Rfam assigns this 157-nucleotide RNA from Populus tomentosa to the family "MIR2912 microRNA precursor family". The source organism's lineage runs through Eukaryota, Euphyllophyta, Magnoliopsida, Gunneridae and Populus. A search with the family's covariance model found it, with a score of 108 bits. Gene Ontology terms of the family: RISC complex and miRNA-mediated post-transcriptional gene silencing.
RNA sequence: UCUAGAACUCAAGAUAUGGACUGGACACUGAACAGUGUUUGGGCUACAGGAAAAUUUCAGACUUCUCCUUUGUUGCUAUAAUUUGAACUUCAAAACGGCCUUUUCAAAUCUUGGACUCCACAUGAAAGUUAUAGGCCUAUGUCUUACUGAUUCUAUC
Numbered sequence: 001u002c003u004a005g006a007a008c009u010c011a012a013g014a015u016a017u018g019g020a021c022u023g024g025a026c027a028c029u030g031a032a033c034a035g036u037g038u039u040u041g042g043g044c045u046a047c048a049g050g051a052a053a054a055u056u057u058c059a060g061a062c063u064u065c066u067c068c069u070u071u072g073u074u075g076c077u078a079u080a081a082u083u084u085g086a087a088c089u090u091c092a093a094a095a096c097g098g099c100c101u102u103u104u105c106a107a108a109u110c111u112u113g114g115a116c117u118c119c120a121c122a123u124g125a126a127a128g129u130u131a132u133a134g135g136c137c138u139a140u141g142u143c144u145u146a147c148u149g150a151u152u153c154u155a156u157c
Stems, first nucleotide, its partner, number of pairs: 003155005009146001011145009021134003025130001027129003035123003041119003045115001048112004060099001062098002072088003